[Rfam]
A member of the RNA family "ROOL RNA", 657 nucleotides long. Rfam classes the family as a small RNA. Rfam's curators write: Firmicutes, Fusobacteria (1 example), Tenericutes (1 example).
RNA sequence: AUUGAAAAUUAAACACCUUGAUAAGUCAGUGAAGAAGUUCUGAACAGCCUGCUGACAAUCUCAUCUGCCUUAAGACUCUCAUUUCUUGAAAACAUCGGGAUACUGGUGACAAGACGUGGUUCUUGCUGGCGACAGUGUAGAAGAAUCUAGUAGAGGCCGUGAAACCGCAUAACGGUCGCUAGAAAGAAGCAUUGAGAUUAUGAAUCAAGAAAAAGAGAUAGAGCACAGUUAAACUCUACUACCUGAAGAAUAGACGACUCGGUGAGUAAUAAGCCUGCAGACUCUAAGAACUAACGACUCUUAGAUUAAGGUAGGCAGAUUGUUGACAUUGUUGCCGCAAGGUGCAAUCUUCAGUAAUCGUGUUAGUAAGGGUAGAUCGUGGAGGUAUUAAAAUCAGCAGUUAAGGUUUUGAUAUGUCAUAGAGGAAACUGGUACGAGUAGCUUAACACGAGAGCAGGUUGACCAAGAAGAUCAUAAUAUUUCUUAAUUCAACUCUGAACGUUCGGUGAAAGUUAGAUCCAUCGCGAUACUCGAUCUUUGGAAAUGGAAUGUAAGCAUUGAGGUAGCUCCUCAGUGUUCAGAGCAUUCUAGUCGUCGCUCAACAAUCUUUGAAGCUUGUGAAGUAGAGAGAAAUCUCAUCAAGGUGUGUGGCAUUAU
Numbered sequence: 001a002u003u004g005a006a007a008a009u010u011a012a013a014c015a016c017c018u019u020g021a022u023a024a025g026u027c028a029g030u031g032a033a034g035a036a037g038u039u040c041u042g043a044a045c046a047g048c049c050u051g052c053u054g055a056c057a058a059u060c061u062c063a064u065c066u067g068c069c070u071u072a073a074g075a076c077u078c079u080c081a082u083u084u085c086u087u088g089a090a091a092a093c094a095u096c097g098g099g100a101u102a103c104u105g106g107u108g109a110c111a112a113g114a115c116g117u118g119g120u121u122c123u124u125g126c127u128g129g130c131g132a133c134a135g136u137g138u139a140g141a142a143g144a145a146u147c148u149a150g151u152a153g154a155g156g157c158c159g160u161g162a163a164a165c166c167g168c169a170u171a172a173c174g175g176u177c178g179c180u181a182g183a184a185a186g187a188a189g190c191a192u193u194g195a196g197a198u199u200a201u202g203a204a205u206c207a208a209g210a211a212a213a214a215g216a217g218a219u220a221g222a223g224c225a226c227a228g229u230u231a232a233a234c235u236c237u238a239c240u241a242c243c244u245g246a247a248g249a250a251u252a253g254a255c256g257a258c259u260c261g262g263u264g265a266g267u268a269a270u271a272a273g274c275c276u277g278c279a280g281a282c283u284c285u286a287a288g289a290a291c292u293a294a295c296g297a298c299u300c301u302u303a304g305a306u307u308a309a310g311g312u313a314g315g316c317a318g319a320u321u322g323u324u325g326a327c328a329u330u331g332u333u334g335c336c337g338c339a340a341g342g343u344g345c346a347a348u349c350u351u352c353a354g355u356a357a358u359c360g361u362g363u364u365a366g367u368a369a370g371g372g373u374a375g376a377u378c379g380u381g382g383a384g385g386u387a388u389u390a391a392a393a394u395c396a397g398c399a400g401u402u403a404a405g406g407u408u409u410u411g412a413u414a415u416g417u418c419a420u421a422g423a424g425g426a427a428a429c430u431g432g433u434a435c436g437a438g439u440a441g442c443u444u445a446a447c448a449c450g451a452g453a454g455c456a457g458g459u460u461g462a463c464c465a466a467g468a469a470g471a472u473c474a475u476a477a478u479a480u481u482u483c484u485u486a487a488u489u490c491a492a493c494u495c496u497g498a499a500c501g502u503u504c505g506g507u508g509a510a511a512g513u514u515a516g517a518u519c520c521a522u523c524g525c526g527a528u529a530c531u532c533g534a535u536c537u538u539u540g541g542a543a544a545u546g547g548a549a550u551g552u553a554a555g556c557a558u559u560g561a562g563g564u565a566g567c568u569c570c571u572c573a574g575u576g577u578u579c580a581g582a583g584c585a586u587u588c589u590a591g592u593c594g595u596c597g598c599u600c601a602a603c604a605a606u607c608u609u610u611g612a613a614g615c616u617u618g619u620g621a622a623g624u625a626g627a628g629a630g631a632a633a634u635c636u637c638a639u640c641a642a643g644g645u646g647u648g649u650g651g652c653a654u655u656a657u
Stems, first nucleotide, its partner, number of pairs: 007654001010651001012649001017644003025056005036050002038047002059197005080118003084114002093108006120142004124137005146183005208617002216609002223599001226431004234424005239375006257267004273316006283305004288300002292365004377451005387413009435512001441507003445503002494582004516531001532594003545591001547589001549587001555578001557575007626637004